This 35-nucleotide RNA belongs to the Rfam family "DUF805b RNA".
The family's consensus secondary structure is taken from published work.
RNA sequence: CACGCGAAAACCGAAAAGCGAAAACAGAGUAGGCA
Numbered sequence: 001c002a003c004g005c006g007a008a009a010a011c012c013g014a015a016a017a018g019c020g021a022a023a024a025c026a027g028a029g030u031a032g033g034c035a
Stems, first nucleotide, its partner, number of pairs: 003020003011033002